[Rfam]
RNA sequence: GAAUCUGUAUGUGACUGGCGCGAAGUGGAUAACCACAAGGGAGCAUACGGAUCAAAGCCGUGCGCCUGGGCAAAGGAA
Numbered sequence: 001g002a003a004u005c006u007g008u009a010u011g012u013g014a015c016u017g018g019c020g021c022g023a024a025g026u027g028g029a030u031a032a033c034c035a036c037a038a039g040g041g042a043g044c045a046u047a048c049g050g051a052u053c054a055a056a057g058c059c060g061u062g063c064g065c066c067u068g069g070g071c072a073a074a075g076g077a078a
Stems, first nucleotide, its partner, number of pairs: 003052010015040002017066005025036004057071003
Annotation:
Rfam assigns this 78-nucleotide sequence from Shouchella clausii to the family "ZMP/ZTP riboswitch aptamer (pfl RNA motif)". Rfam's curators put it in the seed alignment.